[Rfam]
This 87-nucleotide RNA sequence from Araneus ventricosus belongs to the Rfam family "Vault RNA". On this family, see Stadler et al., Mol Biol Evol 2009: "Evolution of Vault RNAs". It is annotated as a non-coding RNA gene. The family's consensus secondary structure is taken from published work. The match comes from Rfam's covariance-model search (35 bits).
RNA sequence: GCUCGGGUUUGGUCUAGUGGUUACUUCGGAUGUCCUCGAACGUCCUCCCCACGGGCCGGACAACCACGGACGCUGACCUGUUUUUUU
Numbered sequence: 001g002c003u004c005g006g007g008u009u010u011g012g013u014c015u016a017g018u019g020g021u022u023a024c025u026u027c028g029g030a031u032g033u034c035c036u037c038g039a040a041c042g043u044c045c046u047c048c049c050c051a052c053g054g055g056c057c058g059g060a061c062a063a064c065c066a067c068g069g070a071c072g073c074u075g076a077c078c079u080g081u082u083u084u085u086u087u
Base pairs, nucleotide, nucleotide: 004080005079006078007077012071013070014069015068017067018066019065020064026060027059029057
Dot-bracket structure: ...((((....((((.((((.....((.(...........................).))...)))))))).....)))).......